[Rfam]
RNA sequence: ACAAAAUAUUGGCAAACUUACUGAAAGGUAGGGACGCAAAGCCAUGGGUCUAAUGGAUGGGUGACAUUCUAUGACUGCCAGGUUGCUAUU
Numbered sequence: 001a002c003a004a005a006a007u008a009u010u011g012g013c014a015a016a017c018u019u020a021c022u023g024a025a026a027g028g029u030a031g032g033g034a035c036g037c038a039a040a041g042c043c044a045u046g047g048g049u050c051u052a053a054u055g056g057a058u059g060g061g062u063g064a065c066a067u068u069c070u071a072u073g074a075c076u077g078c079c080a081g082g083u084u085g086c087u088a089u090u
Base pairs, nucleotide, nucleotide: 012037013036017032018031019030020029021028022027040084041083042082043081045080046079047078048075049074050073055069056068057067058066
Dot-bracket structure: ...........((...((((((....))))))...))..((((.((((((....((((.......))))...)))..)))))))......

Overview
The family of this 90-nucleotide sequence from Sporomusa termitida is "c-di-GMP-I riboswitch aptamer". A search with the family's covariance model found it, with a score of 76 bits. The literature on the family includes a 2007 paper in Nucleic Acids Res by Weinberg et al., "Identification of 22 candidate structured RNAs in bacteria using the CMfinder comparative genomics pipeline". NCBI's taxonomy places the organism under Bacteria, Bacillota, Negativicutes, Sporomusaceae, Sporomusa. From the family's description: GEMM was predicted in a large-scale screen for bacterial structured RNA regulatory elements.